[Rfam]
RNA sequence: CCGGGUGUGGCGAAGUUUGGUAUCGCGCUUGAAUGGGGUUCAAGAGGCCGCUAGUUCGAAUCUAGUCACUCGGA
Numbered sequence: 001c002c003g004g005g006u007g008u009g010g011c012g013a014a015g016u017u018u019g020g021u022a023u024c025g026c027g028c029u030u031g032a033a034u035g036g037g038g039u040u041c042a043a044g045a046g047g048c049c050g051c052u053a054g055u056u057c058g059a060a061u062c063u064a065g066u067c068a069c070u071c072g073g074a
Base pairs, nucleotide, nucleotide: 001073002072003071004070005069006068007067010026011025012024013023028044029043030042031041032040050066051065052064053063054062
RNA: tRNA
Organism: Firmicutes bacterium CAG:170